[Rfam]
RNA sequence: ACCAUCCUUUCCCUGGGGUUGUGCUACUGUCCAAUGAGUGCACAGUAAGAGCAGUCCUGCCAACCCUACCUAACGCACUUGCCUCAACUAGAGCUUCGCUACACCUCGGUGUAAUUUUUGGAAAA
Numbered sequence: 001a002c003c004a005u006c007c008u009u010u011c012c013c014u015g016g017g018g019u020u021g022u023g024c025u026a027c028u029g030u031c032c033a034a035u036g037a038g039u040g041c042a043c044a045g046u047a048a049g050a051g052c053a054g055u056c057c058u059g060c061c062a063a064c065c066c067u068a069c070c071u072a073a074c075g076c077a078c079u080u081g082c083c084u085c086a087a088c089u090a091g092a093g094c095u096u097c098g099c100u101a102c103a104c105c106u107c108g109g110u111g112u113a114a115u116u117u118u119u120g121g122a123a124a125a
Stems, first nucleotide, its partner, number of pairs: 006018004021060003026055005032049001038046002081112002084109002089103001092100003
Dot-bracket structure: .....((((.....))))..(((..(((((.(.....((.....))..).)))))..)))....................((.((...(..(((...)))..)....)).)).............
Annotation: Rfam assigns this 125-nucleotide RNA sequence from Cebus imitator to the family "U4atac minor spliceosomal RNA". Rfam classes the family as a spliceosomal small nuclear RNA. Gene Ontology terms of the family: pre-mRNA 5'-splice site binding, mRNA 5'-splice site recognition and U4atac snRNP. Taxonomically the source falls in Cebus (Eukaryota, Bilateria, Tetrapoda, Eutheria). A reference for the family is Davila Lopez et al. (2008), "Computational screen for spliceosomal RNA genes aids in defining the phylogenetic distribution of major and minor spliceosomal components", Nucleic Acids Res. The family's consensus secondary structure is taken from published work.